[Rfam]
RNA sequence: AAUUAAAAAAGGCAAAUUCAUUGAAAAAUGGAGACGCAAAGCUAGAGGGACUAAGGCGUAAAAGCUAUGUCAGCCAGUUGCCGGU
Numbered sequence: 001a002a003u004u005a006a007a008a009a010a011g012g013c014a015a016a017u018u019c020a021u022u023g024a025a026a027a028a029u030g031g032a033g034a035c036g037c038a039a040a041g042c043u044a045g046a047g048g049g050a051c052u053a054a055g056g057c058g059u060a061a062a063a064g065c066u067a068u069g070u071c072a073g074c075c076a077g078u079u080g081c082c083g084g085u
Stems, first nucleotide, its partner, number of pairs: 012037002017032006040079004047075002049071003056065002
A member of the RNA family "c-di-GMP-I riboswitch aptamer" from Bacillus sp. MUM 13, 85 nucleotides long. GEMM was predicted in a large-scale screen for bacterial structured RNA regulatory elements. Genes associated with GEMM are involved in a diverse array of functions, including chemotaxis regulation, signal transduction, secretion and chitin. The base pairs follow the family's consensus structure, which is taken from published work. A search with the family's covariance model found it, with a score of 78 bits.